This 90-nucleotide sequence from Hirschia baltica belongs to the Rfam family "Glycine riboswitch aptamer". The pairing is the family consensus, mapped onto this sequence. Lineage of the source: Bacteria > Pseudomonadati > Hyphomonadaceae > Hirschia > Hirschia baltica.
RNA sequence: GUAUCUCUCGCGGGAGAGAAUGGCAUAAAAGUCAUGGCCGAAGGCGCAACCGCCCCGGAAACGCUCAGGCAAAAGGACCGCGAAAGAUUA
Numbered sequence: 001g002u003a004u005c006u007c008u009c010g011c012g013g014g015a016g017a018g019a020a021u022g023g024c025a026u027a028a029a030a031g032u033c034a035u036g037g038c039c040g041a042a043g044g045c046g047c048a049a050c051c052g053c054c055c056c057g058g059a060a061a062c063g064c065u066c067a068g069g070c071a072a073a074a075g076g077a078c079c080g081c082g083a084a085a086g087a088u089u090a
Stems, first nucleotide, its partner, number of pairs: 006085001008083006020035004037070003040066002044064003050058002